[Rfam]
RNA: Small nucleolar RNA SNORD26
RNA sequence: CCGCUGGGAUGAUCCCACCGAACUCUCUCUUGCUGACCCCCCCUUGGAGAAACCCCCACAGGCUCUGAGCGGC
Numbered sequence: 001c002c003g004c005u006g007g008g009a010u011g012a013u014c015c016c017a018c019c020g021a022a023c024u025c026u027c028u029c030u031u032g033c034u035g036a037c038c039c040c041c042c043c044u045u046g047g048a049g050a051a052a053c054c055c056c057c058a059c060a061g062g063c064u065c066u067g068a069g070c071g072g073c
Stems, first nucleotide, its partner, number of pairs: 001072004